L31-Firmicutes ribosomal protein leader: a 34-nucleotide RNA from Paenibacillus barengoltzii.
Rfam classes the family as a cis-regulatory leader.
The family's consensus secondary structure is taken from published work.
It is one of the family's seed sequences.
[Rfam]
RNA sequence: CUCUGGGCACGACUGAGGCUCAGGGCGGAAAGAG
Numbered sequence: 001c002u003c004u005g006g007g008c009a010c011g012a013c014u015g016a017g018g019c020u021c022a023g024g025g026c027g028g029a030a031a032g033a034g
Base pairs, nucleotide, nucleotide: 001025002024003023004022005021006020007019008018
Dot-bracket structure: ((((((((.........)))))))).........